[Rfam]
RNA: RAGATH-18 RNA
Organism: Sepunavirus SEP1
RNA sequence: CCUUUGGAGUAUCAUACAAACUCAAGUAGAGUAAUAAGAAGUAAUCUAUGUAUAUGAAAUACUCAAAAGAGGGUACAUUGAAAAAGGAA
Number, nucleotide and partner (000 for none) at each position: 001c087002c086003u085004u084005u083006g000007g000008a000009g076010u075011a074012u073013c072014a000015u000016a000017c000018a000019a000020a000021c071022u070023c069024a000025a000026g000027u000028a000029g064030a063031g062032u000033a000034a060035u059036a000037a000038g000039a000040a000041g000042u000043a000044a000045u000046c000047u000048a000049u000050g000051u000052a000053u000054a000055u000056g000057a000058a000059a035060u034061a000062c031063u030064c029065a000066a000067a000068a000069g023070a022071g021072g013073g012074u011075a010076c009077a000078u000079u000080g000081a000082a000083a005084a004085a003086g002087g001088a000089a000